[Rfam]
Rfam assigns this 283-nucleotide sequence from Schistocephalus solidus to the family "Metazoan signal recognition particle RNA". NCBI's taxonomy places the organism under Eukaryota, Eumetazoa, Bilateria, Diphyllobothriidae, Schistocephalus. The family's consensus secondary structure is taken from published work. Rfam links the family to the GO terms SRP-dependent cotranslational protein targeting to membrane, signal sequence recognition and signal recognition particle, endoplasmic reticulum targeting. The family's RNA type in Rfam is non-coding RNA gene. The literature on the family includes a 2002 paper in Curr Opin Struct Biol by Wild et al., "Towards the structure of the mammalian signal recognition particle". About the family: The signal recognition particle (SRP) is a universally conserved ribonucleoprotein.
RNA sequence: GCCAGGCUGUCGGCGUGCGCCUGUAAUCCAGCUACUUGGAGGCCGGGAGGUGGAAGUUGCUGACUCCGGGAGUUCCGUCUCCUGUCUGCGCAUGUUGAUCGGGCGUCCAUGCUAAGCGCGGCGUCGAUAUGGAGGGCGAGGUGUCCAGAUCGUCUAAGGAGAGGUGCACCGGGCCAGGGGGAAACCCAGCAGCCAAAAGCCUCCGCGUGGCGCAGUAGCAGGAUAGCGCCUGUGAAUGGCGGGCUUGAGACGUCCCGGGGGGCACGUGACGACCUCCUCUUUU
Numbered sequence: 001g002c003c004a005g006g007c008u009g010u011c012g013g014c015g016u017g018c019g020c021c022u023g024u025a026a027u028c029c030a031g032c033u034a035c036u037u038g039g040a041g042g043c044c045g046g047g048a049g050g051u052g053g054a055a056g057u058u059g060c061u062g063a064c065u066c067c068g069g070g071a072g073u074u075c076c077g078u079c080u081c082c083u084g085u086c087u088g089c090g091c092a093u094g095u096u097g098a099u100c101g102g103g104c105g106u107c108c109a110u111g112c113u114a115a116g117c118g119c120g121g122c123g124u125c126g127a128u129a130u131g132g133a134g135g136g137c138g139a140g141g142u143g144u145c146c147a148g149a150u151c152g153u154c155u156a157a158g159g160a161g162a163g164g165u166g167c168a169c170c171g172g173g174c175c176a177g178g179g180g181g182a183a184a185c186c187c188a189g190c191a192g193c194c195a196a197a198a199g200c201c202u203c204c205g206c207g208u209g210g211c212g213c214a215g216u217a218g219c220a221g222g223a224u225a226g227c228g229c230c231u232g233u234g235a236a237u238g239g240c241g242g243g244c245u246u247g248a249g250a251c252g253u254c255c256c257g258g259g260g261g262g263c264a265c266g267u268g269a270c271g272a273c274c275u276c277c278u279c280u281u282u283u
Stems, first nucleotide, its partner, number of pairs: 001043003004022004011015001027040003045281006052274002056270005064260007076252006084244004091238003095234001100232007107222002110220005116213004121208004125152004130147004153159002161203005172194003179186002